[Rfam]
RNA sequence: GCAUCGGUUUAGCUCAGUGGUUACUUCCAACAAUCGACAGUUGUCCUUUGACGAUCCGCGGGUUGUCAAGUUCGACCACGGGCGCUGUCCGAUGUUUUU
Numbered sequence: 001g002c003a004u005c006g007g008u009u010u011a012g013c014u015c016a017g018u019g020g021u022u023a024c025u026u027c028c029a030a031c032a033a034u035c036g037a038c039a040g041u042u043g044u045c046c047u048u049u050g051a052c053g054a055u056c057c058g059c060g061g062g063u064u065g066u067c068a069a070g071u072u073c074g075a076c077c078a079c080g081g082g083c084g085c086u087g088u089c090c091g092a093u094g095u096u097u098u099u
Stems, first nucleotide, its partner, number of pairs: 002094006012083004017079004026075002029072003
A member of the RNA family "Vault RNA" from Oryzias latipes, 99 nucleotides long. The organism belongs to Oryzias, within Eukaryota. Rfam 15.1 lists 2,873 matches to the family in 431 species. It is one of the family's seed sequences.